Purine riboswitch aptamer: a 99-nucleotide RNA from Rummeliibacillus sp. TYF005. Its family is annotated with purine nucleobase biosynthetic process in the Gene Ontology. It scores 72 bits against the family's covariance model. NCBI's taxonomy places the organism under Bacteria, Bacillati, Bacillota, Bacilli, Rummeliibacillus.
RNA sequence: AGAAGAAAAACAUUGAAUCCCCAUAUAUGCUAGAGGAUUGGCUCUAGUGUCUCUACCCGGCACCGUAAAUGCUGGACUAUGCGGGAAAGCGACUAUAGG
Numbered sequence: 001a002g003a004a005g006a007a008a009a010a011c012a013u014u015g016a017a018u019c020c021c022c023a024u025a026u027a028u029g030c031u032a033g034a035g036g037a038u039u040g041g042c043u044c045u046a047g048u049g050u051c052u053c054u055a056c057c058c059g060g061c062a063c064c065g066u067a068a069a070u071g072c073u074g075g076a077c078u079a080u081g082c083g084g085g086a087a088a089g090c091g092a093c094u095a096u097a098g099g
Stems, first nucleotide, its partner, number of pairs: 018085003022081004029048007057075006